A member of the RNA family "Small nucleolar RNA SNORD11B" from Polypterus senegalus, 84 nucleotides long. The base pairs follow the family's consensus structure, which was predicted with WAR. The family is grouped with related families in Rfam's "SNORD11 clan". Gene Ontology terms of the family: RNA processing and nucleolus. By type it is a C/D-box small nucleolar RNA. On this family, see Yang et al., Nucleic Acids Res 2006: "snoSeeker: an advanced computational package for screening of guide and orphan snoRNA genes in the human genome". NCBI's taxonomy places the organism under Eukaryota, Metazoa, Eumetazoa, Teleostomi, Polypterus.

[Rfam]
RNA sequence: GGUUAGCAGUGAUGAUGAUGACUUUUGUCUCACUCCUGAAACAAUCAUGUGGGUGUCUAAGUCACUACCUCAUCUGAGCCAACU
Numbered sequence: 001g002g003u004u005a006g007c008a009g010u011g012a013u014g015a016u017g018a019u020g021a022c023u024u025u026u027g028u029c030u031c032a033c034u035c036c037u038g039a040a041a042c043a044a045u046c047a048u049g050u051g052g053g054u055g056u057c058u059a060a061g062u063c064a065c066u067a068c069c070u071c072a073u074c075u076g077a078g079c080c081a082a083c084u
Base pairs, nucleotide, nucleotide: 002083003082004081006079007078